[Rfam]
RNA sequence: CACUCUUGGGUUUGUUUUUGUCCAACUUGUGGACCAGGACUUACGCACAGGUGCCAAAUAGAAAUCCUUUUUGAAAUUCAGAACUUAGUGGUCUUGAAACAUACAAAAAGGAAUAAA
Number, nucleotide and partner (000 for none) at each position: 001c000002a000003c053004u000005c051006u050007u049008g048009g000010g000011u045012u000013u000014g040015u039016u038017u037018u036019u000020g034021u033022c000023c000024a000025a000026c031027u000028u000029g000030u000031g026032g000033a021034c020035c000036a018037g017038g016039a015040c014041u000042u000043a000044c000045g011046c000047a000048c008049a007050g006051g005052u000053g003054c000055c000056a000057a000058a000059u000060a000061g000062a000063a000064a114065u113066c000067c111068u110069u108070u107071u106072u105073g104074a000075a000076a000077u000078u000079c096080a095081g094082a000083a092084c091085u090086u000087a000088g000089u000090g085091g084092u083093c000094u081095u080096g079097a000098a000099a000100c000101a000102u000103a000104c073105a072106a071107a070108a069109a000110g068111g067112a000113a065114u064115a000116a000117a000

Small nucleolar RNA SNORA40: a 117-nucleotide RNA sequence from Cavia porcellus. The match comes from Rfam's covariance-model search (63 bits). NCBI's taxonomy places the organism under Eukaryota, Metazoa, Euarchontoglires, Rodentia, Cavia. Pairs were carried over by alignment from the consensus structure, which was predicted with RNAalifold. Rfam describes the family as follows. The snoRNA ACA 40 belongs to the H/ACA family of snoRNAs and guides the pseudouridylation of 28S rRNA subunit at position U4565. NB This family has a high threshold value to exclude a large number of closely related sequences that do not appear to have conserved H and ACA boxes, and may be pseudogenes. On this family, see Ofengand and Bakin, J Mol Biol 1997: "Mapping to nucleotide resolution of pseudouridine residues in large subunit ribosomal RNAs from representative eukaryotes, prokaryotes, archaebacteria, mitochondria and chloroplasts".